[Rfam]
RNA sequence: GGCUGGUCCAAAGGUAGUGAGUUAUCUCACUUGAUUUUUCAUAGUCAGUUGCAGAUUGAACUCCUUGUUCUACCAAUUACCCCCUUCUCACUACUGCACUUGACUAGUCAAAA
Numbered sequence: 001g002g003c004u005g006g007u008c009c010a011a012a013g014g015u016a017g018u019g020a021g022u023u024a025u026c027u028c029a030c031u032u033g034a035u036u037u038u039u040c041a042u043a044g045u046c047a048g049u050u051g052c053a054g055a056u057u058g059a060a061c062u063c064c065u066u067g068u069u070c071u072a073c074c075a076a077u078u079a080c081c082c083c084c085u086u087c088u089c090a091c092u093a094c095u096g097c098a099c100u101u102g103a104c105u106a107g108u109c110a111a112a113a
Stems, first nucleotide, its partner, number of pairs: 001109008010101002014097002016092006044074001047071002
Dot-bracket structure: ((((((((.((..((((((((......................(..((.....................))..)............))))))...))..))))))))))....
A member of the RNA family "Y RNA" from Prolemur simus, 113 nucleotides long. Rfam describes the family as follows. Y RNAs are components of the Ro ribonucleoprotein particle (Ro RNP), in association with Ro60 and La proteins. The Y RNAs and Ro60 and La proteins are well conserved, but the function of the Ro RNP is not known.